[Rfam]
RNA sequence: CCCUUAUCUUUUAAAAGUUUCAAGUUGGUCCCUUAUCUUUUCUACAGGUUUCAAAUUGGUCCCUUCCGUCAAAUUUUUCACUAUUGCCGUUAAAUUUGGACACGUGUCAUCUUUCCAACUGUGGUUUUUGUUUGCCACGUGUCCAAAUUUAACGGUAAUAGUAAAAAAUUUGACGGGAGGGACCAACAUGAAACCUACAGAAAAGAUAAGGGACCAACUUAAAACUUUUAAAAGAUAAAGGA
Numbered sequence: 001c002c003c004u005u006a007u008c009u010u011u012u013a014a015a016a017g018u019u020u021c022a023a024g025u026u027g028g029u030c031c032c033u034u035a036u037c038u039u040u041u042c043u044a045c046a047g048g049u050u051u052c053a054a055a056u057u058g059g060u061c062c063c064u065u066c067c068g069u070c071a072a073a074u075u076u077u078u079c080a081c082u083a084u085u086g087c088c089g090u091u092a093a094a095u096u097u098g099g100a101c102a103c104g105u106g107u108c109a110u111c112u113u114u115c116c117a118a119c120u121g122u123g124g125u126u127u128u129u130g131u132u133u134g135c136c137a138c139g140u141g142u143c144c145a146a147a148u149u150u151a152a153c154g155g156u157a158a159u160a161g162u163a164a165a166a167a168a169u170u171u172g173a174c175g176g177g178a179g180g181g182a183c184c185a186a187c188a189u190g191a192a193a194c195c196u197a198c199a200g201a202a203a204a205g206a207u208a209a210g211g212g213a214c215c216a217a218c219u220u221a222a223a224a225c226u227u228u229u230a231a232a233a234g235a236u237a238a239a240g241g242a
Base pairs, nucleotide, nucleotide: 002240004238005237006236007235008234023219024218025217027215028214029213031211032210033209034208035207036206037205038204039203040202041201042200043199046196047195
The record is a 242-nucleotide RNA sequence from Trifolium pratense, which matches "MIR2655 microRNA precursor family" in Rfam. Its family is annotated with RISC complex and miRNA-mediated post-transcriptional gene silencing in the Gene Ontology. It scores 122 bits against the family's covariance model. The organism belongs to Trifolium, within Eukaryota.